[Rfam]
RNA sequence: AUAUAAGCAAAAUUGACUUUUUAGAUUCACUCAUUUAAUGAUGUAUGUGGUUCAUAAUAUGGAUCACAUACAUCAUUAAAUGAAUGAACCUAAAAAGUCAUUUUUCCUUAUAU
Numbered sequence: 001a002u003a004u005a006a007g008c009a010a011a012a013u014u015g016a017c018u019u020u021u022u023a024g025a026u027u028c029a030c031u032c033a034u035u036u037a038a039u040g041a042u043g044u045a046u047g048u049g050g051u052u053c054a055u056a057a058u059a060u061g062g063a064u065c066a067c068a069u070a071c072a073u074c075a076u077u078a079a080a081u082g083a084a085u086g087a088a089c090c091u092a093a094a095a096a097g098u099c100a101u102u103u104u105u106c107c108u109u110a111u112a113u
Stems, first nucleotide, its partner, number of pairs: 002112006009105004014100011026088004031083013048066004
RNA: MIR2593 microRNA precursor family
Organism: Medicago truncatula